RNA sequence: UUAUAACAUCAGGAGCGGUUUCAUAGCAGAAACCCGCCAACCGACCCAUGUGGGCACGGUGGUUUGAUCCUUAAACGGUAGAUGUGCCUCACAAGAGGAAUCUUAAAGCCGCCUGA
Numbered sequence: 001u002u003a004u005a006a007c008a009u010c011a012g013g014a015g016c017g018g019u020u021u022c023a024u025a026g027c028a029g030a031a032a033c034c035c036g037c038c039a040a041c042c043g044a045c046c047c048a049u050g051u052g053g054g055c056a057c058g059g060u061g062g063u064u065u066g067a068u069c070c071u072u073a074a075a076c077g078g079u080a081g082a083u084g085u086g087c088c089u090c091a092c093a094a095g096a097g098g099a100a101u102c103u104u105a106a107a108g109c110c111g112c113c114u115g116a
Base pairs, nucleotide, nucleotide: 006085007084008083009082010081015035017034018033019032020031021030036063037062038061041059042058043057045054046053050109051108087098088097089096090095
SAM-I/IV (S-adenosyl methionine) riboswitch aptamer: a 116-nucleotide sequence. Pairs were carried over by alignment from the consensus structure, which is taken from published work. For this family Rfam cites "The aptamer core of SAM-IV riboswitches mimics the ligand-binding site of SAM-I riboswitches" (Weinberg et al., RNA, 2008). The sequence is in the family's curated seed alignment.